This 66-nucleotide RNA belongs to the Rfam family "RAGATH-18 RNA". Pairs were carried over by alignment from the consensus structure, which is taken from published work. The sequence is in the family's curated seed alignment. The family's RNA type in Rfam is small RNA.
RNA sequence: CCCUUGGAGUGUUAUAAAAACUUGAGUAGCUUAUAUAAAGUGAAAAAGAACACGUUGAAUAGGGAA
Numbered sequence: 001c002c003c004u005u006g007g008a009g010u011g012u013u014a015u016a017a018a019a020a021c022u023u024g025a026g027u028a029g030c031u032u033a034u035a036u037a038a039a040g041u042g043a044a045a046a047a048g049a050a051c052a053c054g055u056u057g058a059a060u061a062g063g064g065a066a
Stems, first nucleotide, its partner, number of pairs: 001064004009053005021048003029041003